[Rfam]
RNA sequence: AAACAAGCGAAAGGAGGUGGUCUGAUGUCUCAUUGUCCAAUGCCGAACGUGGCCCAGGUGAGCGCAGCCUCCGCGGAGGUUUCUGCUUAACGCCAGACCACCCUGGCUAGGCAAUGGAAAGGCCGUCCGGGCGACCGGGCGGCCUU
Numbered sequence: 001a002a003a004c005a006a007g008c009g010a011a012a013g014g015a016g017g018u019g020g021u022c023u024g025a026u027g028u029c030u031c032a033u034u035g036u037c038c039a040a041u042g043c044c045g046a047a048c049g050u051g052g053c054c055c056a057g058g059u060g061a062g063c064g065c066a067g068c069c070u071c072c073g074c075g076g077a078g079g080u081u082u083c084u085g086c087u088u089a090a091c092g093c094c095a096g097a098c099c100a101c102c103c104u105g106g107c108u109a110g111g112c113a114a115u116g117g118a119a120a121g122g123c124c125g126u127c128c129g130g131g132c133g134a135c136c137g138g139g140c141g142g143c144c145u146u
Stems, first nucleotide, its partner, number of pairs: 016023002031116007044049001050056002057086001060081001062080002068076002092107005119146012
Dot-bracket structure: ...............((....)).......(((((((......(....)((...))(..(.((....((.....))..)))....).....(((((......)))))..)))))))..((((((((((((....))))))))))))